[Rfam]
The record is a 64-nucleotide RNA sequence from Mus musculus, which matches "mir-3473 microRNA precursor family" in Rfam. Rfam links the family to the GO terms miRNA-mediated post-transcriptional gene silencing, cellular response to mechanical stimulus and RISC complex. The family's consensus secondary structure was predicted with RNAalifold. The family has 5 seed sequences and 1,094 matches in Rfam 15.1.

RNA sequence: ACCACUGAGCCACUUUCCAGCCCUUUGAAAACUUAUUUGAGGGCUGGAGAGGUGGCUCAGUGGC
Numbered sequence: 001a002c003c004a005c006u007g008a009g010c011c012a013c014u015u016u017c018c019a020g021c022c023c024u025u026u027g028a029a030a031a032c033u034u035a036u037u038u039g040a041g042g043g044c045u046g047g048a049g050a051g052g053u054g055g056c057u058c059a060g061u062g063g064c
Stems, first nucleotide, its partner, number of pairs: 002063011013051011